This 114-nucleotide RNA sequence belongs to the Rfam family "DUF3800-I RNA". Rfam describes the family as follows. Actinobacteria, Firmicutes, Fusobacteria, Proteobacteria (1 example), Tenericutes (2 examples). Rfam classes the family as a small RNA.

RNA sequence: UAAUAUUGCAGGUAGAAAUACGCUGUAUACUCGUGUAAUUGAAUUAACGUUUAAGCGAUAUGUAAUAUCGUCGAUGCACGGGGAAGCCGCCUUCGGGCGGCUUUUUGCAUACAU
Dot-bracket structure: ......((((((((....))).)))))..((((((..(((((((....)))...((((((.....)))))))))).))))))(((((((((....)))))))))..........